[Rfam]
RNA: c-di-AMP riboswitch aptamer (ydaO/yuaA leader)
RNA sequence: AAAUACCAGACGCUGAAUCCAUGUAAUGGAACGGGGGAUAAUCAAAUUGGGGUGAACCAUUAAGGGGGCUAAACUCUAUGGCCUAACCCGUCAACUAACCUCGUAAGCAGAAUAGAGGAGGAAA
Numbered sequence: 001a002a003a004u005a006c007c008a009g010a011c012g013c014u015g016a017a018u019c020c021a022u023g024u025a026a027u028g029g030a031a032c033g034g035g036g037g038a039u040a041a042u043c044a045a046a047u048u049g050g051g052g053u054g055a056a057c058c059a060u061u062a063a064g065g066g067g068g069c070u071a072a073a074c075u076c077u078a079u080g081g082c083c084u085a086a087c088c089c090g091u092c093a094a095c096u097a098a099c100c101u102c103g104u105a106a107g108c109a110g111a112a113u114a115g116a117g118g119a120g121g122a123a124a
Stems, first nucleotide, its partner, number of pairs: 012108003018030003031104006050089003058064001067083004